[Rfam]
RNA: Small nucleolar SNORD12/SNORD106
RNA sequence: GCUGUGGUUAAUGAUGUUAUGACUUUUUUCCCCAUCUUAUCGACCAUGGUGAAGCAGUUCUGACUUUAAGCCAAUCAUUUCUGAAACCACGCU
Numbered sequence: 001g002c003u004g005u006g007g008u009u010a011a012u013g014a015u016g017u018u019a020u021g022a023c024u025u026u027u028u029u030c031c032c033c034a035u036c037u038u039a040u041c042g043a044c045c046a047u048g049g050u051g052a053a054g055c056a057g058u059u060c061u062g063a064c065u066u067u068a069a070g071c072c073a074a075u076c077a078u079u080u081c082u083g084a085a086a087c088c089a090c091g092c093u
Base pairs, nucleotide, nucleotide: 001093003091004090005089006088007087008086009085